[Rfam]
RNA: Small nucleolar RNA SNORD81
Organism: Cavia porcellus
RNA sequence: UGGAAUACAUGAUGAUCUCACCUCAGCUUGAACCCUCUCCCUGUUUACUGGAUGAUGAGCAAAGAUCUAAUGUUCUA
Numbered sequence: 001u002g003g004a005a006u007a008c009a010u011g012a013u014g015a016u017c018u019c020a021c022c023u024c025a026g027c028u029u030g031a032a033c034c035c036u037c038u039c040c041c042u043g044u045u046u047a048c049u050g051g052a053u054g055a056u057g058a059g060c061a062a063a064g065a066u067c068u069a070a071u072g073u074u075c076u077a
Stems, first nucleotide, its partner, number of pairs: 001077007